[Rfam]
RNA sequence: CUCUUAUCGAGAGCGGCGGAGGGACUGGCCCUAUGAAGCCCGGCAACCGGCCUUUUUGGCAAAGGUGCCAAAUCCUGCAGGAGGAUAAUCCUGAGAGAUAAGAG
Dot-bracket structure: ((((((((....(.(((...(((.[.[[)))......))))((((.((.(((.....)))...))))))...(]].](((((......)))))..)))))))))
This 104-nucleotide RNA sequence from Carboxydothermus hydrogenoformans belongs to the Rfam family "SAM riboswitch aptamer (S box leader)". Rfam links the family to the GO term regulation of gene expression. Lineage of the source: Bacteria > Bacillota > Thermoanaerobacteraceae > Carboxydothermus > Carboxydothermus hydrogenoformans. The literature on the family includes a 1998 paper in Mol Microbiol by Grundy and Henkin, "The S box regulon: a new global transcription termination control system for methionine and cysteine biosynthesis genes in gram-positive bacteria".